[Rfam]
RNA sequence: GGGUGCUUGAGGCUGUCUGUCUCAAGCAUUUUUGCAAAAGACAGAUAGUAGAAAGCCCCGAAUGAACGUUAAAUUCAAACGAGGCUCACUAGAUGUACAUAGACAAUACAGAUAGUAGUCUCUUUCUCGAAAGGAGGCAAGCUAUGCCAAAGAAAG
Numbered sequence: 001g002g003g004u005g006c007u008u009g010a011g012g013c014u015g016u017c018u019g020u021c022u023c024a025a026g027c028a029u030u031u032u033u034g035c036a037a038a039a040g041a042c043a044g045a046u047a048g049u050a051g052a053a054a055g056c057c058c059c060g061a062a063u064g065a066a067c068g069u070u071a072a073a074u075u076c077a078a079a080c081g082a083g084g085c086u087c088a089c090u091a092g093a094u095g096u097a098c099a100u101a102g103a104c105a106a107u108a109c110a111g112a113u114a115g116u117a118g119u120c121u122c123u124u125u126c127u128c129g130a131a132a133g134g135a136g137g138c139a140a141g142c143u144a145u146g147c148c149a150a151a152g153a154a155a156g
Base pairs, nucleotide, nucleotide: 001059002058003057005056006055007054008053012049013048014047015046016045017044018043019042020041021040022039026035027034060080063078064076065075066074081122082121083120084119085118089115090114091113094110095109096108097107128146131143
Dot-bracket structure: (((.((((...(((((((((((...((......))...)))))))))))...)))))))(..((((.......))).).)(((((...(((..((((.........))))..)))..))))).....(..(...........)..)..........
Record summary: The family of this 156-nucleotide RNA from Photobacterium damselae is "sok antitoxin (CssrC)". From the family's description: Also identified in Shigella as CssrC. For this family Rfam cites "An integrated approach for finding overlooked genes in Shigella" (Peng et al., PLoS One, 2011). Taxonomically the source falls in Photobacterium damselae subsp. damselae (Bacteria, Pseudomonadati, Pseudomonadota, Vibrionales). Its family is annotated with mRNA binding in the Gene Ontology. Rfam 15.1 lists 305 matches to the family in 167 species.